glmS glucosamine-6-phosphate activated ribozyme aptamer: a 162-nucleotide RNA from Bacillus infantis.
Rfam classes the family as a riboswitch.
The organism belongs to Bacillus infantis, within Bacteria.
The base pairs follow the family's consensus structure, which is taken from published work.
RNA sequence: UAUACUUUUAAAGCGCCUGAACUAGCCAUGAGAGGGCUAGUUGACGAGGAGGAGGUUUAUCGAUUUUUCGGCGGAUGCCUCCCGGUUGAGCAAGCACAACCGAAAAUCCUUCUUUAAAGCAUCAAGGCAACUUGGUGGACAAAGAGAGGGAUAUGCUUCUGA
Numbered sequence: 001u002a003u004a005c006u007u008u009u010a011a012a013g014c015g016c017c018u019g020a021a022c023u024a025g026c027c028a029u030g031a032g033a034g035g036g037c038u039a040g041u042u043g044a045c046g047a048g049g050a051g052g053a054g055g056u057u058u059a060u061c062g063a064u065u066u067u068u069c070g071g072c073g074g075a076u077g078c079c080u081c082c083c084g085g086u087u088g089a090g091c092a093a094g095c096a097c098a099a100c101c102g103a104a105a106a107u108c109c110u111u112c113u114u115u116a117a118a119g120c121a122u123c124a125a126g127g128c129a130a131c132u133u134g135g136u137g138g139a140c141a142a143a144g145a146g147a148g149g150g151a152u153a154u155g156c157u158u159c160u161g162a
Stems, first nucleotide, its partner, number of pairs: 020042008029033001051082005060071004083102006106152007120137007